A member of the RNA family "mir-221 microRNA precursor family" from Anabarilius grahami, 82 nucleotides long. The family has 72 seed sequences and 1,797 matches in Rfam 15.1. The source organism's lineage runs through Eukaryota, Actinopteri, Teleostei, Cypriniphysae and Anabarilius.
[Rfam]
RNA sequence: UCCAUCCUUUGCUCAGUAGUCAGUGUAGGUCCUGUCGUCCCGUCAGCAGCUACAUCUGGCUACUGGGUCUCGGAUGGCCGCC
Numbered sequence: 001u002c003c004a005u006c007c008u009u010u011g012c013u014c015a016g017u018a019g020u021c022a023g024u025g026u027a028g029g030u031c032c033u034g035u036c037g038u039c040c041c042g043u044c045a046g047c048a049g050c051u052a053c054a055u056c057u058g059g060c061u062a063c064u065g066g067g068u069c070u071c072g073g074a075u076g077g078c079c080g081c082c
Stems, first nucleotide, its partner, number of pairs: 013066006020059003023055006032049004
Dot-bracket structure: ............((((((.(((((((((...((((..........)))))))))).))).))))))................
For this family Rfam cites "Parallel DNA pyrosequencing unveils new zebrafish microRNAs" (Soares et al., BMC Genomics, 2009).
The family's consensus secondary structure was predicted with RNAalifold.
It scores 72 bits against the family's covariance model.